[Rfam]
RNA sequence: AGUAUGUUUGUCCACGAUAGGCCCCGGAAACUUAUUGUUUUCAAACUGCAA
Numbered sequence: 001a002g003u004a005u006g007u008u009u010g011u012c013c014a015c016g017a018u019a020g021g022c023c024c025c026g027g028a029a030a031c032u033u034a035u036u037g038u039u040u041u042c043a044a045a046c047u048g049c050a051a
Base pairs, nucleotide, nucleotide: 006046007045008044009043010042014038015037016036017035018034019033020032021031
Dot-bracket structure: .....(((((...((((((((.........))))))))...))))).....